Shown here is a 131-nucleotide sequence from Carlito syrichta, a member of the family "Small nucleolar RNA SNORA64/SNORA10 family". NCBI's taxonomy places the organism under Eukaryota, Deuterostomia, Teleostomi, Tarsiidae, Carlito. A search with the family's covariance model found it, with a score of 81 bits. The base pairs follow the family's consensus structure, which is taken from published work. It is annotated as an H/ACA-box small nucleolar RNA. Rfam's curators write: This family belongs to the H/ACA class of small nucleolar RNAs (snoRNAs) which act as guides in the the modification of uridines to pseudouridines. This family includes the human snoRNAs U64 and ACA10 and mouse MBI-29.
RNA sequence: UCUGGCUCAGCUCUGCUUGAUCACAUUGGCCCUGUGUGCCUGGCAUAUUUUCAGGGAGAGAGAGGCAGGCUCUCCUAAUGCAGGACAGCAGUGCCGAAGAUGGCCUCUCUGUUCGUAGGAGUGUCACAAAU
Numbered sequence: 001u002c003u004g005g006c007u008c009a010g011c012u013c014u015g016c017u018u019g020a021u022c023a024c025a026u027u028g029g030c031c032c033u034g035u036g037u038g039c040c041u042g043g044c045a046u047a048u049u050u051u052c053a054g055g056g057a058g059a060g061a062g063a064g065g066c067a068g069g070c071u072c073u074c075c076u077a078a079u080g081c082a083g084g085a086c087a088g089c090a091g092u093g094c095c096g097a098a099g100a101u102g103g104c105c106u107c108u109c110u111g112u113u114c115g116u117a118g119g120a121g122u123g124u125c126a127c128a129a130a131u
Base pairs, nucleotide, nucleotide: 001063002062003061006060007059008058011056012055013054014053015052019041022038023037024036025035026034072121073120074119075118076117078116079115080114087110088109091106093104094103095102